[Rfam]
RNA sequence: AAUAAGCGUAGCCAUAAGUUUUCGUCUUCAACUUAGAUCAUCUGUCUUAUUUGAAACUUUUUUAUGAUUAGUAUUUUUUUAUUAGAUUGUAAAACAUGAAUAUUACUUUAUGCAUGACUUAUAUUAUUUUAGAUUUUCUAAAAAAAAUAAAUAAGACGGAUGAUUAAAGUUGGACACGAAAACUCAGGGCUGCGCUUAUU
Numbered sequence: 001a002a003u004a005a006g007c008g009u010a011g012c013c014a015u016a017a018g019u020u021u022u023c024g025u026c027u028u029c030a031a032c033u034u035a036g037a038u039c040a041u042c043u044g045u046c047u048u049a050u051u052u053g054a055a056a057c058u059u060u061u062u063u064a065u066g067a068u069u070a071g072u073a074u075u076u077u078u079u080u081a082u083u084a085g086a087u088u089g090u091a092a093a094a095c096a097u098g099a100a101u102a103u104u105a106c107u108u109u110a111u112g113c114a115u116g117a118c119u120u121a122u123a124u125u126a127u128u129u130u131a132g133a134u135u136u137u138c139u140a141a142a143a144a145a146a147a148u149a150a151a152u153a154a155g156a157c158g159g160a161u162g163a164u165u166a167a168a169g170u171u172g173g174a175c176a177c178g179a180a181a182a183c184u185c186a187g188g189g190c191u192g193c194g195c196u197u198a199u200u
Base pairs, nucleotide, nucleotide: 027174028173029172030171031170032169033168034167036165037164038163039162040161041160042159043158044157045156046155047154048153049152050151
Dot-bracket structure: ..........................((((((((.(((((((((((((((....................................................................................................))))))))))))))).))))))))..........................